[Rfam]
RNA sequence: UCGCAAUCCGCUAACCGGUCUGGCCGUGUCGCGGAAGGUUCUGUAACCAGCCAACUGCUUUGGAAGCCGAAGCGUGAGGUCAGCG
Numbered sequence: 001u002c003g004c005a006a007u008c009c010g011c012u013a014a015c016c017g018g019u020c021u022g023g024c025c026g027u028g029u030c031g032c033g034g035a036a037g038g039u040u041c042u043g044u045a046a047c048c049a050g051c052c053a054a055c056u057g058c059u060u061u062g063g064a065a066g067c068c069g070a071a072g073c074g075u076g077a078g079g080u081c082a083g084c085g
Base pairs, nucleotide, nucleotide: 002085003084004083007035008034009033010032011031016026017025018024019023037048038047039046040045050080051079052078057073058072059071060070061069062068063067

SucA RNA motif: an 85-nucleotide RNA from Inhella crocodyli. NCBI's taxonomy places the organism under Bacteria, Pseudomonadati, Burkholderiales, Sphaerotilaceae, Inhella. Rfam classes the family as a cis-regulatory element.